c-di-GMP-I riboswitch aptamer: an 85-nucleotide RNA sequence from Desulforamulus ruminis. The literature on the family includes a 2008 paper in Science by Sudarsan et al., "Riboswitches in Eubacteria Sense the Second Messenger Cyclic Di-GMP". Taxonomically the source falls in Desulforamulus ruminis (Bacteria, Eubacteriales, Peptococcaceae, Desulforamulus).
RNA sequence: AGUAUGAAAAGGCAAAUCCAUUGAAAAAUGGGGGCGCAAAGCCAUGGGUCUAAGCCAAGUUCGGUAUGAUUGCCAGGCUGCCAAA
Numbered sequence: 001a002g003u004a005u006g007a008a009a010a011g012g013c014a015a016a017u018c019c020a021u022u023g024a025a026a027a028a029u030g031g032g033g034g035c036g037c038a039a040a041g042c043c044a045u046g047g048g049u050c051u052a053a054g055c056c057a058a059g060u061u062c063g064g065u066a067u068g069a070u071u072g073c074c075a076g077g078c079u080g081c082c083a084a085a
Base pairs, nucleotide, nucleotide: 012037013036017032018031019030020029021028022027040079041078042077043076045075046074047073048070049069050068055064056063